RNA sequence: GGCAGAAGCCACCUGGGGGAUGGCUCGGCUCGGGGGGCGACGAAGGGCGUGGCAAGCUGCGAUAAGCCCCGGGGAGGCGCACGCAGCCUACGAUCCGGGGAUGCCCGAAUGGGAAUCCCACCAGGCCCUUAAGGCCUGGUAGACGCGCCUUAAGGCGCGUCGGCGAACCCUCCGAAAGGAAACAUCUGAGUAGGAGGAGGAAAAGAAAUCAAUACGAGAUGCCCUGAGUAGCGGAGAGCGAAAAGGGCACAGCCCAAACCGAACCGCCACGGCGAUGAGUCGUGGUGGGAUGUGGGGUUUUGCCCUAGCGGUGGGCGGAGCCCGGCCUAGCCUACAUGCCUAGCCGAAGUGGCCUGGAACGGCCCGCCAUAGAGGGUGAUAGCCCCGUAGGCGAAAGGCAUGGGCGGGCUGAGCUAGGGCAGAGUACCCGGCCUUGGCAGUGGUUGGGGAAGAUGGGGGAAAGCGGCCUCCAAGGCUAAAUACCUCCCGAGACCGAUAGCGCACAAGUACCGUGAGGGAAAGCUGAAAAGAACCCCGGAAGGGGGGUGAAAAGAGCCUGAAACCAGGUGGCUAUAAGCG
Numbered sequence: 001g002g003c004a005g006a007a008g009c010c011a012c013c014u015g016g017g018g019g020a021u022g023g024c025u026c027g028g029c030u031c032g033g034g035g036g037g038c039g040a041c042g043a044a045g046g047g048c049g050u051g052g053c054a055a056g057c058u059g060c061g062a063u064a065a066g067c068c069c070c071g072g073g074g075a076g077g078c079g080c081a082c083g084c085a086g087c088c089u090a091c092g093a094u095c096c097g098g099g100g101a102u103g104c105c106c107g108a109a110u111g112g113g114a115a116u117c118c119c120a121c122c123a124g125g126c127c128c129u130u131a132a133g134g135c136c137u138g139g140u141a142g143a144c145g146c147g148c149c150u151u152a153a154g155g156c157g158c159g160u161c162g163g164c165g166a167a168c169c170c171u172c173c174g175a176a177a178g179g180a181a182a183c184a185u186c187u188g189a190g191u192a193g194g195a196g197g198a199g200g201a202a203a204a205g206a207a208a209u210c211a212a213u214a215c216g217a218g219a220u221g222c223c224c225u226g227a228g229u230a231g232c233g234g235a236g237a238g239c240g241a242a243a244a245g246g247g248c249a250c251a252g253c254c255c256a257a258a259c260c261g262a263a264c265c266g267c268c269a270c271g272g273c274g275a276u277g278a279g280u281c282g283u284g285g286u287g288g289g290a291u292g293u294g295g296g297g298u299u300u301u302g303c304c305c306u307a308g309c310g311g312u313g314g315g316c317g318g319a320g321c322c323c324g325g326c327c328u329a330g331c332c333u334a335c336a337u338g339c340c341u342a343g344c345c346g347a348a349g350u351g352g353c354c355u356g357g358a359a360c361g362g363c364c365c366g367c368c369a370u371a372g373a374g375g376g377u378g379a380u381a382g383c384c385c386c387g388u389a390g391g392c393g394a395a396a397g398g399c400a401u402g403g404g405c406g407g408g409c410u411g412a413g414c415u416a417g418g419g420c421a422g423a424g425u426a427c428c429c430g431g432c433c434u435u436g437g438c439a440g441u442g443g444u445u446g447g448g449g450a451a452g453a454u455g456g457g458g459g460a461a462a463g464c465g466g467c468c469u470c471c472a473a474g475g476c477u478a479a480a481u482a483c484c485u486c487c488c489g490a491g492a493c494c495g496a497u498a499g500c501g502c503a504c505a506a507g508u509a510c511c512g513u514g515a516g517g518g519a520a521a522g523c524u525g526a527a528a529a530g531a532a533c534c535c536c537g538g539a540a541g542g543g544g545g546g547u548g549a550a551a552a553g554a555g556c557c558u559g560a561a562a563c564c565a566g567g568u569g570g571c572u573a574u575a576a577g578c579g
Base pairs, nucleotide, nucleotide: 007572008571009570010569011568012567013566014565015564016563022557023523024522027494028493029491030490031489032488033487034486035484036483045106046105047104048061049060050059067100068099069098070097071096072095076088077087078086111119112118113117142161143160144159145158146157147156148155149154168199169197170196171195172194173193179186180185209217210216221248222247223246224245225244231239232238251477252476253475254474259295260294261293269283270282271281272280306416307415308414309413327408328407330405343392344391345390349365351364352363353362354361368372374386375385376384427448428447429446430445431444432443433442455471456470457469458468459467510517511516
RNA: Archaeal large subunit ribosomal RNA, nucleotides 10 to 588